[Rfam]
RNA sequence: AGCCUUUCGAAUCCGUGCUGAGAUUUCGUCAGACACUAACCCACUAGGGUUGAUCAGAGUUCCAAGAUAAAUGAAGUU
Number, nucleotide and partner (000 for none) at each position: 001a000002g077003c076004c000005u074006u073007u000008c000009g000010a000011a068012u067013c066014c000015g000016u064017g063018c000019u000020g062021a061022g060023a000024u058025u057026u056027c000028g054029u053030c052031a000032g000033a000034c000035a000036c000037u000038a000039a000040c000041c000042c000043a000044c000045u000046a000047g000048g000049g000050u000051u000052g030053a029054u028055c000056a026057g025058a024059g000060u022061u021062c020063c017064a016065a000066g013067a012068u011069a000070a000071a000072u000073g006074a005075a000076g003077u002078u000
Annotation: The family of this 78-nucleotide RNA from Schistosoma mattheei is "mir-3492 microRNA precursor family". The source organism's lineage runs through Eukaryota, Digenea, Strigeidida, Schistosomatoidea and Schistosoma. Rfam links the family to the GO terms RISC complex and miRNA-mediated post-transcriptional gene silencing.